[Rfam]
RNA sequence: AUGCACUUGAUACUAACCUAGGUAUCUGUACCUCUGUUUUUUUUUUUUUUUCUGAACACCUGAGGUAUGCUGUGAUACUUGGGACUAAGGAGUGCGAUAUAAAAUCAAGCCCUGAGAUUUAAGCUCAGUGUGCAGAGAGACACCCUGGGUUAUAACUCAAAGGCACACCU
Numbered sequence: 001a002u003g004c005a006c007u008u009g010a011u012a013c014u015a016a017c018c019u020a021g022g023u024a025u026c027u028g029u030a031c032c033u034c035u036g037u038u039u040u041u042u043u044u045u046u047u048u049u050u051u052c053u054g055a056a057c058a059c060c061u062g063a064g065g066u067a068u069g070c071u072g073u074g075a076u077a078c079u080u081g082g083g084a085c086u087a088a089g090g091a092g093u094g095c096g097a098u099a100u101a102a103a104a105u106c107a108a109g110c111c112c113u114g115a116g117a118u119u120u121a122a123g124c125u126c127a128g129u130g131u132g133c134a135g136a137g138a139g140a141c142a143c144c145c146u147g148g149g150u151u152a153u154a155a156c157u158c159a160a161a162g163g164c165a166c167a168c169c170u
Stems, first nucleotide, its partner, number of pairs: 003095006017083002020080007027069006033062001036059002039056002109164003128143004146159005
A member of the RNA family "Small Cajal body specific RNA 1" from Geotrypetes seraphini, 170 nucleotides long. For this family Rfam cites "Cajal body-specific small nuclear RNAs: a novel class of 2'-O-methylation and pseudouridylation guide RNAs" (Darzacq et al., EMBO J, 2002). scaRNAs are a specific class of small nuclear RNAs which localise to the Cajal bodies and guide the modification of RNA polymerase II transcribed spliceosomal RNAs U1, U2, U4, U5 and U12. ACA35 belong to the H/ACA box class of guide RNAs as it has the predicted hairpin-hinge-hairpin-tail structure, conserved H/ACA-box motifs and is found associated with GAR1. It is predicted to guide pseudouridylation of the U2 spliceosomal snRNA at residue U89. Lineage of the source: Eukaryota > Gnathostomata > Dipnotetrapodomorpha > Amphibia > Geotrypetes. By type it is a small Cajal body RNA.